Shown here is a 266-nucleotide sequence from Sporanaerobacter acetigenes, a member of the family "Bacterial large signal recognition particle RNA". On this family, see Rosenblad et al., RNA Biol 2009: "Kinship in the SRP RNA family". The family's consensus secondary structure is taken from published work. By type it is a non-coding RNA gene.
[Rfam]
RNA sequence: CCGUGCUAGAUGGGGAGGUAGCGGUGCCCUGUAACCUGCAAGCCGCUAUAGCAGGAUUGAAUUCCUGGUUUCGGCUUGUCAUUGUAAGGUCUGCCCUAAAUAAGUGGCGGUGACGAUUGGGUCCUACGCAACGGAAAUUCAUGAACCCCGUCAGGUCCGGGAGGAAGCAGCGGUAAGUGAACACUUUCGUGUGCCGUAGGUAAGCCUAAUCUGAGUUAACUGUUUAGGUAACGCUUGGAAUGACAAUGCCAACGCCAGGUGCACGG
Numbered sequence: 001c002c003g004u005g006c007u008a009g010a011u012g013g014g015g016a017g018g019u020a021g022c023g024g025u026g027c028c029c030u031g032u033a034a035c036c037u038g039c040a041a042g043c044c045g046c047u048a049u050a051g052c053a054g055g056a057u058u059g060a061a062u063u064c065c066u067g068g069u070u071u072c073g074g075c076u077u078g079u080c081a082u083u084g085u086a087a088g089g090u091c092u093g094c095c096c097u098a099a100a101u102a103a104g105u106g107g108c109g110g111u112g113a114c115g116a117u118u119g120g121g122u123c124c125u126a127c128g129c130a131a132c133g134g135a136a137a138u139u140c141a142u143g144a145a146c147c148c149c150g151u152c153a154g155g156u157c158c159g160g161g162a163g164g165a166a167g168c169a170g171c172g173g174u175a176a177g178u179g180a181a182c183a184c185u186u187u188c189g190u191g192u193g194c195c196g197u198a199g200g201u202a203a204g205c206c207u208a209a210u211c212u213g214a215g216u217u218a219a220c221u222g223u224u225u226a227g228g229u230a231a232c233g234c235u236u237g238g239a240a241u242g243a244c245a246a247u248g249c250c251a252a253c254g255c256c257a258g259g260u261g262c263a264c265g266g
Stems, first nucleotide, its partner, number of pairs: 001266006009058003012030004017025001019023001035055005064259006073250003077246001079243005085237004092230002096227006104220002106217003115211008123200006129191002132189005138181005148173004156165003
It scores 222 bits against the family's covariance model.